The family of this 68-nucleotide sequence from Pantherophis guttatus is "Small nucleolar RNA SNORD58". For this family Rfam cites "Purified box C/D snoRNPs are able to reproduce site-specific 2'-O-methylation of target RNA in vitro" (Galardi et al., Mol Cell Biol, 2002). Rfam describes the family as follows. snoRNA U58 is found in introns 1, 3 and 6 of the ribosomal protein RPL17 gene in humans.
[Rfam]
RNA sequence: CUGCGGUGAUGACUAUCUUAGGACACCUUUGGAUGUAGAUAAUGAAAAUACUAUGAAUUCUGAGCAGC
Number, nucleotide and partner (000 for none) at each position: 001c067002u066003g065004c064005g000006g000007u000008g000009a000010u000011g000012a000013c000014u000015a000016u000017c000018u000019u000020a000021g000022g000023a000024c000025a000026c000027c000028u000029u000030u000031g000032g000033a000034u000035g000036u000037a000038g000039a000040u000041a000042a000043u000044g000045a000046a000047a000048a000049u000050a000051c000052u000053a000054u000055g000056a000057a000058u000059u000060c000061u000062g000063a000064g004065c003066a002067g001068c000